[Rfam]
RNA: c-di-GMP-I riboswitch aptamer
RNA sequence: ACUAUAUAAUGGCAAAACUGCUGAAAAGUAGUGACGCAAAGCUAUAGGGGCUUAUCCCGGAACAGGGAAUGCCAGCCAGUUGCAAAA
Numbered sequence: 001a002c003u004a005u006a007u008a009a010u011g012g013c014a015a016a017a018c019u020g021c022u023g024a025a026a027a028g029u030a031g032u033g034a035c036g037c038a039a040a041g042c043u044a045u046a047g048g049g050g051c052u053u054a055u056c057c058c059g060g061a062a063c064a065g066g067g068a069a070u071g072c073c074a075g076c077c078a079g080u081u082g083c084a085a086a087a
Stems, first nucleotide, its partner, number of pairs: 012037002017032006040081004047077002049073003056067003